[Rfam]
RNA sequence: GAGCACGUAAAUGCACUGUGUUGCUAAUUUGGCUCAUCGAAAAUUAGCAGCAUGGCGCAUUUGCGCGCCA
Numbered sequence: 001g002a003g004c005a006c007g008u009a010a011a012u013g014c015a016c017u018g019u020g021u022u023g024c025u026a027a028u029u030u031g032g033c034u035c036a037u038c039g040a041a042a043a044u045u046a047g048c049a050g051c052a053u054g055g056c057g058c059a060u061u062u063g064c065g066c067g068c069c070a
Base pairs, nucleotide, nucleotide: 003068004067006065007064008063009062010061011060012059013058014057016055017054018053019052020051021050022049023048024047025046026045027044028043029042
RNA: mir-5366 microRNA precursor family
Organism: Ascaris suum